[Rfam]
RNA sequence: CCCAGCGAUGAAUCGCUGGGCUAUUUUCGGCUGUCCCUUCGGGACA
Numbered sequence: 001c002c003c004a005g006c007g008a009u010g011a012a013u014c015g016c017u018g019g020g021c022u023a024u025u026u027u028c029g030g031c032u033g034u035c036c037c038u039u040c041g042g043g044a045c046a
Stems, first nucleotide, its partner, number of pairs: 001020008033045005